[Rfam]
RNA sequence: ACAGGAACAUGACCUACGAGUUGACAGGCGGUGUAGCCGAGUCUGCCUGUCACUUCUGUAGGCCAAGCUCCUGU
Numbered sequence: 001a002c003a004g005g006a007a008c009a010u011g012a013c014c015u016a017c018g019a020g021u022u023g024a025c026a027g028g029c030g031g032u033g034u035a036g037c038c039g040a041g042u043c044u045g046c047c048u049g050u051c052a053c054u055u056c057u058g059u060a061g062g063c064c065a066a067g068c069u070c071c072u073g074u
Base pairs, nucleotide, nucleotide: 001074002073003072004071005070006069008067010065011064013062014061015060016059018056019055020054022052023051024050025049026048027047028046029045030044031043
Background: The family of this 74-nucleotide sequence from Fukomys damarensis is "mir-192/215 microRNA precursor family". From the family's description: This family represents the human microRNA (miRNA) precursors mir-192 and mir-215. Animal miRNAs are transcribed as ~70nt precursors and subsequently processed by the Dicer enzyme to give a ~22nt product. Rfam 15.1 lists 810 matches to the family in 628 species. Taxonomically the source falls in Fukomys (Eukaryota, Euteleostomi, Eutheria, Euarchontoglires). The base pairs follow the family's consensus structure, which was predicted with PFOLD.